[Rfam]
RNA sequence: AUUAUCCAAGGGCAAACCUGUCGAAAGGCAGGGACGCAAAGCCAAGGGCCUAAGGAAUAGAAAUUAUUCUAUGGCAGCCGGUUGCAUGA
Number, nucleotide and partner (000 for none) at each position: 001a000002u000003u000004a000005u000006c000007c000008a000009a000010g000011g000012g037013c036014a000015a000016a000017c032018c031019u030020g029021u028022c027023g000024a000025a000026a000027g022028g021029c020030a019031g018032g017033g000034a000035c000036g013037c012038a000039a000040a083041g082042c081043c080044a000045a000046g079047g078048g075049c074050c073051u000052a000053a000054g000055g069056a068057a067058u066059a000060g000061a000062a000063a000064u000065u000066a058067u057068u056069c055070u000071a000072u000073g050074g049075c048076a000077g000078c047079c046080g043081g042082u041083u040084g000085c000086a000087u000088g000089a000